Annotation
The record is a 441-nucleotide sequence from Microcystis aeruginosa, which matches "Bacterial RNase P class A" in Rfam. NCBI's taxonomy places the organism under Bacteria, Cyanophyceae, Oscillatoriophycideae, Chroococcales, Microcystis aeruginosa. A search with the family's covariance model found it, with a score of 250 bits. By type it is a ribozyme.
RNA sequence: AGAGUUGGUCUAGAGGUUGCGGGAUCAUUUUAUCAAUGAUUCCGAGGAAAGUCCGAACUCCCGAAAGACCACACUUGCUGGAUAACGUCCAGUGCGCGCGAGCGUGAGGAUAGUGCCACAGAAAAAUACCGCCCCCUUUUUUCAGUGAUCAGUAAAUAGUAACGAAAGUAAAUUGACUGAUAACUGACAACUGAUUGGGGGUAAGGGUGCAAAGGUGCGGUAAGAGCGCACCAGCAGUAUCGAGAGGUACUGGCUCGGUAAACCCCGGUGGGGAGCAAGGUGGAGGGACAAAGGUUGGUCUUUUUCCUGUCCCGUUUUUAGGAACCGCUUGAGGUAAUUGGUGACAAUUAUCCCAGAUAGAUAACCUCUAUUCCAACAAAGGUAAAAGCGAUUUUACUGCUGUUGGGAAAUACAGAAUUCGGCUUAUGUCUGACUCUCUCC
Numbered sequence: 001a002g003a004g005u006u007g008g009u010c011u012a013g014a015g016g017u018u019g020c021g022g023g024a025u026c027a028u029u030u031u032a033u034c035a036a037u038g039a040u041u042c043c044g045a046g047g048a049a050a051g052u053c054c055g056a057a058c059u060c061c062c063g064a065a066a067g068a069c070c071a072c073a074c075u076u077g078c079u080g081g082a083u084a085a086c087g088u089c090c091a092g093u094g095c096g097c098g099c100g101a102g103c104g105u106g107a108g109g110a111u112a113g114u115g116c117c118a119c120a121g122a123a124a125a126a127u128a129c130c131g132c133c134c135c136c137u138u139u140u141u142u143c144a145g146u147g148a149u150c151a152g153u154a155a156a157u158a159g160u161a162a163c164g165a166a167a168g169u170a171a172a173u174u175g176a177c178u179g180a181u182a183a184c185u186g187a188c189a190a191c192u193g194a195u196u197g198g199g200g201g202u203a204a205g206g207g208u209g210c211a212a213a214g215g216u217g218c219g220g221u222a223a224g225a226g227c228g229c230a231c232c233a234g235c236a237g238u239a240u241c242g243a244g245a246g247g248u249a250c251u252g253g254c255u256c257g258g259u260a261a262a263c264c265c266c267g268g269u270g271g272g273g274a275g276c277a278a279g280g281u282g283g284a285g286g287g288a289c290a291a292a293g294g295u296u297g298g299u300c301u302u303u304u305u306c307c308u309g310u311c312c313c314g315u316u317u318u319u320a321g322g323a324a325c326c327g328c329u330u331g332a333g334g335u336a337a338u339u340g341g342u343g344a345c346a347a348u349u350a351u352c353c354c355a356g357a358u359a360g361a362u363a364a365c366c367u368c369u370a371u372u373c374c375a376a377c378a379a380a381g382g383u384a385a386a387a388g389c390g391a392u393u394u395u396a397c398u399g400c401u402g403u404u405g406g407g408a409a410a411u412a413c414a415g416a417a418u419u420c421g422g423c424u425u426a427u428g429u430c431u432g433a434c435u436c437u438c439u440c441c
Base pairs, nucleotide, nucleotide: 001437002436003435004434005433006432007431008430010428012369013368014367015366016365017364018363020044021043022042023041024040025039026038027037028036049425050424051423053422054421055420056419057418058275059274060273061272067306068305072270073269074268076267077266078092079091080090081089082088093107094105095104096103097102108265109264113263114262115259116258117257129206130205131202132201133200134199135198136197139194214232215231216230217229218228219227234254235252236251237250238249239248240247241246279326280325281324285318286317287316288315289314297312298311300309333352334351335350336349337348338347339346340345